[Rfam]
RNA sequence: AGGGCUCUUCCUUAGGGCCCCCCCCCAAUCCUGUUGUGUUUAGUCCAGAGGGUUGGGUGGAUGCUCUCCGGAAGGGCUC
Number, nucleotide and partner (000 for none) at each position: 001a000002g000003g000004g000005c000006u075007c074008u073009u072010c071011c000012u000013u000014a067015g066016g065017g064018c063019c000020c000021c060022c059023c057024c056025c000026c055027a054028a053029u052030c051031c050032u049033g000034u048035u047036g046037u000038g000039u000040u000041u000042a000043g000044u000045c000046c036047a035048g034049a032050g031051g030052g029053u028054u027055g026056g024057g023058u000059g022060g021061a000062u000063g018064c017065u016066c015067u014068c000069c000070g000071g010072a009073a008074g007075g006076g000077c000078u000079c000
The record is a 79-nucleotide RNA from Octodon degus, which matches "mir-296 microRNA precursor family" in Rfam. Rfam links the family to the GO terms RISC complex and miRNA-mediated post-transcriptional gene silencing. Taxonomically the source falls in Octodon (Eukaryota, Metazoa, Bilateria, Euteleostomi). A search with the family's covariance model found it, with a score of 78 bits. The family's consensus secondary structure was predicted with RNAalifold.